Source information:
Rfam assigns this 90-nucleotide RNA from Clostridium tyrobutyricum to the family "c-di-GMP-I riboswitch aptamer". NCBI's taxonomy places the organism under Bacteria, Clostridia, Eubacteriales, Clostridium, Clostridium tyrobutyricum.
RNA sequence: UAUUGAUAAUAGCACACUUAUCGAAAGGUAAGGCCGCAAAGCUAUGGGUCUGAAGAAAAAGUAUUUUUCUAUGAUUGCCAGGCUUCCAAA
Numbered sequence: 001u002a003u004u005g006a007u008a009a010u011a012g013c014a015c016a017c018u019u020a021u022c023g024a025a026a027g028g029u030a031a032g033g034c035c036g037c038a039a040a041g042c043u044a045u046g047g048g049u050c051u052g053a054a055g056a057a058a059a060a061g062u063a064u065u066u067u068u069c070u071a072u073g074a075u076u077g078c079c080a081g082g083c084u085u086c087c088a089a090a
Stems, first nucleotide, its partner, number of pairs: 012037002017032006040084004045080003048075003055069006